Background
The record is a 59-nucleotide sequence from Ictalurus punctatus, which matches "mir-148/mir-152 microRNA precursor family" in Rfam. Rfam's curators put it in the seed alignment. Taxonomically the source falls in Ictalurus (Eukaryota, Neopterygii, Teleostei, Osteoglossocephalai). A reference for the family is Lagos-Quintana et al. (2002), "Identification of tissue-specific microRNAs from mouse", Curr Biol.
RNA sequence: AAGUUCUGUGAUACACUCAGACUUUGAAUCAGUGGUAGUCAGUGCAUGACAGAACUUUG
Numbered sequence: 001a002a003g004u005u006c007u008g009u010g011a012u013a014c015a016c017u018c019a020g021a022c023u024u025u026g027a028a029u030c031a032g033u034g035g036u037a038g039u040c041a042g043u044g045c046a047u048g049a050c051a052g053a054a055c056u057u058u059g
Stems, first nucleotide, its partner, number of pairs: 001057008014044004020040004